Rfam assigns this 71-nucleotide sequence from Pteropus alecto to the family "mir-374 microRNA precursor family". Rfam 15.1 lists 440 matches to the family in 122 species. The organism belongs to Pteropus, within Eukaryota.
RNA sequence: ACAUAGGCCAUUAUGAUACAGCCUGAUAAGUGUUACAGCACUUACCAGGUUGUAUCGUAACUGUCCGUGCA
Numbered sequence: 001a002c003a004u005a006g007g008c009c010a011u012u013a014u015g016a017u018a019c020a021g022c023c024u025g026a027u028a029a030g031u032g033u034u035a036c037a038g039c040a041c042u043u044a045c046c047a048g049g050u051u052g053u054a055u056c057g058u059a060a061c062u063g064u065c066c067g068u069g070c071a
Base pairs, nucleotide, nucleotide: 013058014057015056016055017054018053019052020051021050023048024047025046027044028043029042030041031040032039033038

A search with the family's covariance model found it, with a score of 82 bits.